[Rfam]
Rfam assigns this 73-nucleotide RNA sequence from Linderina pennispora to the family "tRNA". The base pairs follow the family's consensus structure, which is taken from published work. It is annotated as a transfer RNA. It scores 60 bits against the family's covariance model. Taxonomically the source falls in Linderina (Eukaryota, Fungi, Kickxellomycotina, Kickxellaceae).
RNA sequence: GAUCCCAUUGUAUAGUGGUUAUUACGUUGCCUUUACACGGCAAAGGUCACGAGUUCGAUCCUCGUUGGGGUCA
Number, nucleotide and partner (000 for none) at each position: 001g072002a071003u070004c069005c068006c067007a066008u000009u000010g025011u024012a023013u000014a000015g000016u000017g000018g000019u000020u000021a000022u000023u012024a011025c010026g000027u043028u042029g041030c040031c039032u000033u000034u000035a000036c000037a000038c000039g031040g030041c029042a028043a027044a000045g000046g000047u000048c000049a065050c064051g063052a062053g061054u000055u000056c000057g000058a000059u000060c000061c053062u052063c051064g050065u049066u007067g006068g005069g004070g003071u002072c001073a000